[Rfam]
RNA sequence: UUGCUGUUUCAGGGCGGGGUGGAAUUCCCCACUGGCGGUAAAUCGGGCGGUGCCAAAGGGGCGCCGUGGAGCAGGCGAGGUGCCUGCGACCGAGCCGAUGAGUCCGCGACCCGUGUGUGCGUUGGUUCGCAUGCCGGCUGAACUGGUGAGAUCCCAGUACCAACGGUUAGAGUCCGGAUGAAAGAGGCAGGUG
Numbered sequence: 001u002u003g004c005u006g007u008u009u010c011a012g013g014g015c016g017g018g019g020u021g022g023a024a025u026u027c028c029c030c031a032c033u034g035g036c037g038g039u040a041a042a043u044c045g046g047g048c049g050g051u052g053c054c055a056a057a058g059g060g061g062c063g064c065c066g067u068g069g070a071g072c073a074g075g076c077g078a079g080g081u082g083c084c085u086g087c088g089a090c091c092g093a094g095c096c097g098a099u100g101a102g103u104c105c106g107c108g109a110c111c112c113g114u115g116u117g118u119g120c121g122u123u124g125g126u127u128c129g130c131a132u133g134c135c136g137g138c139u140g141a142a143c144u145g146g147u148g149a150g151a152u153c154c155c156a157g158u159a160c161c162a163a164c165g166g167u168u169a170g171a172g173u174c175c176g177g178a179u180g181a182a183a184g185a186g187g188c189a190g191g192u193g
Base pairs, nucleotide, nucleotide: 004190005189006188007187008186009185010184017029018028019027031173032172033162034161035107036106037105038104111137112136142158143157144156145155146154164176165175166174

The record is a 193-nucleotide sequence from Collinsella aerofaciens, which matches "FMN riboswitch aptamer (RFN element)" in Rfam. Rfam links the family to the GO term FMN binding. A search with the family's covariance model found it, with a score of 93 bits. Pairs were carried over by alignment from the consensus structure, which is taken from published work. The RFN element is a highly conserved domain that is found frequently in the 5'-untranslated regions of prokaryotic mRNAs that encode for flavin mononucleotide (FMN) biosynthesis and transport proteins. The source organism's lineage runs through Bacteria, Coriobacteriia, Coriobacteriales, Coriobacteriaceae and Collinsella.